[Rfam]
The family of this 76-nucleotide sequence from Candidatus Methylacidiphilum infernorum is "Fluoride riboswitch aptamer (crcB RNA motif)".
The organism belongs to Candidatus Methylacidiphilum infernorum, within Bacteria.
RNA sequence: CUCUUAUUGGGCGAUGGGGCUCGCCGACCGUUAACCGCCGUUCUUUUCAAAGAAGGCUGAUAGCUCCUACCUCUAA
Number, nucleotide and partner (000 for none) at each position: 001c000002u000003c000004u000005u000006a000007u000008u000009g000010g025011g024012c023013g022014a000015u000016g067017g066018g065019g064020c063021u062022c013023g012024c011025c010026g000027a000028c000029c000030g000031u000032u000033a000034a000035c000036c000037g057038c056039c055040g000041u000042u000043c000044u000045u000046u000047u000048c000049a000050a000051a000052g000053a000054a000055g039056g038057c037058u000059g000060a000061u000062a021063g020064c019065u018066c017067c016068u000069a000070c000071c000072u000073c000074u000075a000076a000